The family of this 87-nucleotide sequence from Vibrio viridaestus is "c-di-GMP-I riboswitch aptamer". The base pairs follow the family's consensus structure, which is taken from published work. The organism belongs to Vibrio, within Bacteria. Rfam describes the family as follows. GEMM was predicted in a large-scale screen for bacterial structured RNA regulatory elements. Genes associated with GEMM are involved in a diverse array of functions, including chemotaxis regulation, signal transduction, secretion and chitin.
Nucleotides: 087
Base pairs, nucleotide, nucleotide: 012037013036017032018031019030020029021028022027040081041080042079043078045077046076047075048072049071050070055067056066057065058064
Number, partner (000 for none) and nucleotide at each position: 001000c002000a003000c004000g005000u006000a007000u008000u009000a010000g011000g012037g013036c014000a015000a016000a017032c018031c019030u020029a021028c022027u023000g024000a025000a026000a027022a028021g029020u030019g031018g032017g033000g034000a035000c036013g037012c038000a039000a040081a041080g042079c043078u044000u045077c046076c047075g048072g049071c050070c051000u052000u053000a054000c055067u056066g057065a058064g059000u060000a061000u062000u063000a064058c065057u066056c067055a068000c069000a070050g071049g072048u073000a074000g075047c076046g077045g078043g079042g080041u081040u082000g083000c084000c085000a086000a087000u